[Rfam]
Nucleotides: 147
Base pairs, nucleotide, nucleotide: 011131012130013129014128018034019033020032021031022030035126036125037124038123039122040121056111057110058109064089065088066087067086068085069084070083092105093104
Number, partner (000 for none) and nucleotide at each position: 001000g002000u003000g004000c005000g006000a007000a008000a009000a010000c011131u012130g013129c014128c015000g016000a017000a018034u019033u020032c021031c022030c023000g024000c025000g026000c027000a028000c029000a030022g031021g032020g033019a034018a035126a036125u037124g038123g039122g040121g041000g042000a043000a044000c045000c046000a047000u048000u049000u050000a051000g052000u053000a054000c055000c056111g057110g058109g059000u060000g061000a062000a063000u064089u065088g066087a067086c068085u069084c070083c071000g072000c073000u074000c075000u076000g077000c078000g079000g080000g081000c082000a083070g084069g085068a086067g087066u088065c089064a090000u091000a092105g093104g094000g095000a096000a097000c098000c099000u100000u101000c102000a103000a104093c105092c106000g107000a108000a109058c110057c111056c112000u113000u114000c115000a116000g117000c118000u119000a120000a121040c122039c123038u124037c125036g126035u127000a128014g129013g130012c131011a132000c133000c134000u135000g136000g137000a138000a139000g140000g141000a142000g143000u144000a145000c146000g147000u

Rfam assigns this 147-nucleotide sequence from Cohnella nanjingensis to the family "c-di-AMP riboswitch aptamer (ydaO/yuaA leader)". The match comes from Rfam's covariance-model search (64 bits). Lineage of the source: Bacteria > Bacillota > Bacilli > Paenibacillaceae > Cohnella. Rfam's curators write: This family represents a conserved RNA structure found upstream of the ydaO and yuaA genes in Bacillus subtilis and related genes in other bacteria. The ydaO/yuaA element is thought to act as a genetic 'off' switch for the ydaO and yuaA genes in its native state.